[Rfam]
Pyrrolysine insertion sequence mttB: a 100-nucleotide RNA sequence.
It scores 98 bits against the family's covariance model.
A reference for the family is Theil Have et al. (2013), "Effects of using coding potential, sequence conservation and mRNA structure conservation for predicting pyrroly-sine containing genes", BMC Bioinformatics.
By type it is a cis-regulatory element.
RNA sequence: UAGUCUGACGCCAAAGUUCCGGACGACCAGGCAGGGCACGAAAAGACCAUGACCUGUCUCCUUCCAGCCCUCUCUGGUGCAAACACCCUCUACGGUGCAG
Numbered sequence: 001u002a003g004u005c006u007g008a009c010g011c012c013a014a015a016g017u018u019c020c021g022g023a024c025g026a027c028c029a030g031g032c033a034g035g036g037c038a039c040g041a042a043a044a045g046a047c048c049a050u051g052a053c054c055u056g057u058c059u060c061c062u063u064c065c066a067g068c069c070c071u072c073u074c075u076g077g078u079g080c081a082a083a084c085a086c087c088c089u090c091u092a093c094g095g096u097g098c099a100g
Stems, first nucleotide, its partner, number of pairs: 003012001025032001033062003077098001079096002